RNA sequence: UGAGUUCCGGUUCACGGUUUCGCCCCAGGCGGAUCCGACCCGGCGGCU
Numbered sequence: 001u002g003a004g005u006u007c008c009g010g011u012u013c014a015c016g017g018u019u020u021c022g023c024c025c026c027a028g029g030c031g032g033a034u035c036c037g038a039c040c041c042g043g044c045g046g047c048u
Base pairs, nucleotide, nucleotide: 003048004047005046007043008042009041010040015037016036017035019033020032021031022030023029
Rfam assigns this 48-nucleotide sequence from Lolliginicoccus lacisalsi to the family "L31-Actinobacteria ribosomal protein leader". The source organism's lineage runs through Bacteria, Actinomycetota, Mycobacteriales, Hoyosellaceae and Lolliginicoccus.